Rfam assigns this 122-nucleotide sequence from Martelella mediterranea to the family "Rhizobiales sRNA Atu_C8". For this family Rfam cites "Deep sequencing uncovers numerous small RNAs on all four replicons of the plant pathogen Agrobacterium tumefaciens" (Wilms et al., RNA Biol, 2012). The base pairs follow the family's consensus structure, which was predicted with CMfinder.
RNA sequence: GGCUAAGAAAGAACUUCUUAUUGUGGUGGGAUCGCGCAUGGGCAGGAUGGUGUAACCAUCCGGCAGCAGCCACCCAUGCGCGACGACAGGCUCCUUGAAGGGGCCUUUUUUUAUGCCCGAGG
Numbered sequence: 001g002g003c004u005a006a007g008a009a010a011g012a013a014c015u016u017c018u019u020a021u022u023g024u025g026g027u028g029g030g031a032u033c034g035c036g037c038a039u040g041g042g043c044a045g046g047a048u049g050g051u052g053u054a055a056c057c058a059u060c061c062g063g064c065a066g067c068a069g070c071c072a073c074c075c076a077u078g079c080g081c082g083a084c085g086a087c088a089g090g091c092u093c094c095u096u097g098a099a100g101g102g103g104c105c106u107u108u109u110u111u112u113a114u115g116c117c118c119g120a121g122g
Stems, first nucleotide, its partner, number of pairs: 029118002032115001033082010045061006063070002086107001088106007